[Rfam]
RNA sequence: AAUCAAGAGUUCCAGCCCUCGGCCCUGGCCGGCUGGACAGCAACCCUCUCCCGUAGUGGGGUGCUCCAGGUGAAGAUUCGGCCGCCGGGCCAAGUCCCCCGGUUGGCAAGUACGGCGU
Number, nucleotide and partner (000 for none) at each position: 001a078002a077003u076004c075005a000006a000007g000008a000009g038010u000011u037012c036013c035014a034015g033016c032017c000018c000019u000020c000021g030022g029023c000024c000025c000026u000027g000028g000029c022030c021031g000032g016033c015034u014035g013036g012037a011038c009039a065040g064041c063042a000043a000044c061045c060046c059047u000048c056049u055050c000051c000052c000053g000054u000055a049056g048057u000058g000059g046060g045061g044062u000063g041064c040065u039066c000067c000068a000069g000070g000071u000072g000073a000074a000075g004076a003077u002078u001079c000080g000081g107082c106083c105084g104085c102086c101087g100088g099089g098090c000091c000092a000093a000094g000095u000096c000097c000098c089099c088100c087101g086102g085103u000104u084105g083106g082107c081108a000109a000110g000111u000112a000113c000114g000115g000116c000117g000118u000
RNA: SAM (S-adenosyl methionine) riboswitch aptamer